mir-216 microRNA precursor family: a 77-nucleotide RNA from Scleropages formosus. Its family is annotated with miRNA-mediated post-transcriptional gene silencing and RISC complex in the Gene Ontology. Rfam 15.1 lists 1,667 matches to the family in 655 species. NCBI's taxonomy places the organism under Eukaryota, Euteleostomi, Actinopterygii, Osteoglossocephala, Scleropages. Its Rfam clan is "mir-216 clan". Pairs were carried over by alignment from the consensus structure, which was predicted with WAR.

RNA sequence: AUUUGGUGAAAUCUCAGCUGGCAACUGUGAGUAGUCGUGCUACCGCUCUCACGGCGGCCGCUGGGAUUGCACUAAAC
Numbered sequence: 001a002u003u004u005g006g007u008g009a010a011a012u013c014u015c016a017g018c019u020g021g022c023a024a025c026u027g028u029g030a031g032u033a034g035u036c037g038u039g040c041u042a043c044c045g046c047u048c049u050c051a052c053g054g055c056g057g058c059c060g061c062u063g064g065g066a067u068u069g070c071a072c073u074a075a076a077c
Stems, first nucleotide, its partner, number of pairs: 003075005010068008020059003026053006